[Rfam]
RNA sequence: UGGGGUGUGAGGAGUGGGAACGCUCUUCCGGGGUCGAAACGAGGACAGACUCCCAGAAUCGUUCCAACU
Numbered sequence: 001u002g003g004g005g006u007g008u009g010a011g012g013a014g015u016g017g018g019a020a021c022g023c024u025c026u027u028c029c030g031g032g033g034u035c036g037a038a039a040c041g042a043g044g045a046c047a048g049a050c051u052c053c054c055a056g057a058a059u060c061g062u063u064c065c066a067a068c069u
Stems, first nucleotide, its partner, number of pairs: 018064005026056001030054003033050003
RNA: Cyano-1 RNA